[Rfam]
RNA sequence: GCUGGGUGCGCGGGAGACAUCCCCGGUUUCAUCCGGGGAGGCCGAAGGAGCAACCGCCUCGGAAACUCUCAGGCAAAACGGACCGCGCAUCCGGU
Numbered sequence: 001g002c003u004g005g006g007u008g009c010g011c012g013g014g015a016g017a018c019a020u021c022c023c024c025g026g027u028u029u030c031a032u033c034c035g036g037g038g039a040g041g042c043c044g045a046a047g048g049a050g051c052a053a054c055c056g057c058c059u060c061g062g063a064a065a066c067u068c069u070c071a072g073g074c075a076a077a078a079c080g081g082a083c084c085g086c087g088c089a090u091c092c093g094g095u
Stems, first nucleotide, its partner, number of pairs: 006090008020039006041074003044070002048068003054061001
Dot-bracket structure: .....((((((((......((((((........)))))).(((((..(((...(......)....))))).)))........)))))))).....
Rfam assigns this 95-nucleotide RNA sequence from Aurantiacibacter zhengii to the family "Glycine riboswitch aptamer". It scores 58 bits against the family's covariance model.